[Rfam]
This 98-nucleotide RNA from Myotis brandtii belongs to the Rfam family "mir-544 microRNA precursor family".
The organism belongs to Myotis, within Eukaryota.
RNA sequence: AUCGCCAAGGGAUCUUGCUAAAAUGCAGAUUCUGAUUCAGUGGGCCCGGGGUGGGGCCUGAGAUUCUGCAUUUCUAACAAGCUCCCAGGCAAUGAUGA
Numbered sequence: 001a002u003c004g005c006c007a008a009g010g011g012a013u014c015u016u017g018c019u020a021a022a023a024u025g026c027a028g029a030u031u032c033u034g035a036u037u038c039a040g041u042g043g044g045c046c047c048g049g050g051g052u053g054g055g056g057c058c059u060g061a062g063a064u065u066c067u068g069c070a071u072u073u074c075u076a077a078c079a080a081g082c083u084c085c086c087a088g089g090c091a092a093u094g095a096u097g098a
Base pairs, nucleotide, nucleotide: 004090005089009085010084011083014081015080016079017078019076020075021073022072023071025069026068027067028066029065031063032062033061
It scores 80 bits against the family's covariance model. The base pairs follow the family's consensus structure, which was predicted with RNAalifold. Rfam 15.1 lists 10,750 matches to the family in 132 species.